[Rfam]
RNA sequence: AAAAAGAAAUGACCCGCACGGGGGAGCCGUGUGGGCCUAAGAUGUGACGAGUAUCGUUCAUCCUGCAUGCCUUUACAGACACGAUUCAGAACAGAUGGUUAUGCUAUUUGGAUUUUAUCGUUAGGAGCCUGUGAAUUCUGGCAGGAAA
Numbered sequence: 001a002a003a004a005a006g007a008a009a010u011g012a013c014c015c016g017c018a019c020g021g022g023g024g025a026g027c028c029g030u031g032u033g034g035g036c037c038u039a040a041g042a043u044g045u046g047a048c049g050a051g052u053a054u055c056g057u058u059c060a061u062c063c064u065g066c067a068u069g070c071c072u073u074u075a076c077a078g079a080c081a082c083g084a085u086u087c088a089g090a091a092c093a094g095a096u097g098g099u100u101a102u103g104c105u106a107u108u109u110g111g112a113u114u115u116u117a118u119c120g121u122u123a124g125g126a127g128c129c130u131g132u133g134a135a136u137u138c139u140g141g142c143a144g145g146a147a148a
Base pairs, nucleotide, nucleotide: 013035014034015033016032017031018030019029020028021027046058047057048056049055050054061146062145063144064143065142066141069138072135073134074133075132076131077130078129080127081121082120083119084118085117092110093109094108095107096106097105098104099103
Source information:
The record is a 148-nucleotide RNA sequence from Erwinia amylovora, which matches "Hfq-regulated sRNA 10" in Rfam. By type it is a small RNA. Rfam links the family to the GO term protein binding.